[Rfam]
This 136-nucleotide RNA from Anaerosolibacter carboniphilus belongs to the Rfam family "c-di-AMP riboswitch aptamer (ydaO/yuaA leader)". About the family: This family represents a conserved RNA structure found upstream of the ydaO and yuaA genes in Bacillus subtilis and related genes in other bacteria. The match comes from Rfam's covariance-model search (111 bits). Rfam links the family to the GO terms cyclic-di-AMP binding and regulation of gene expression.

RNA sequence: CAUGUAAAUACGCUGAAUUCUUAUUAUAAGAAGCGGGGGAACCAUCUAUUUGGGGUGAAUCUCUUUUAUGAGAGUAGGGUCAUCUUCUUUCGAUCCGAAUCCGUCAGCUAACCUCGUAAGCGUCGAAAGAGGAAGA
Numbered sequence: 001c002a003u004g005u006a007a008a009u010a011c012g013c014u015g016a017a018u019u020c021u022u023a024u025u026a027u028a029a030g031a032a033g034c035g036g037g038g039g040a041a042c043c044a045u046c047u048a049u050u051u052g053g054g055g056u057g058a059a060u061c062u063c064u065u066u067u068a069u070g071a072g073a074g075u076a077g078g079g080u081c082a083u084c085u086u087c088u089u090u091c092g093a094u095c096c097g098a099a100u101c102c103g104u105c106a107g108c109u110a111a112c113c114u115c116g117u118a119a120g121c122g123u124c125g126a127a128a129g130a131g132g133a134a135g136a
Stems, first nucleotide, its partner, number of pairs: 011122004018032006033117006043052002053102003061074004077096004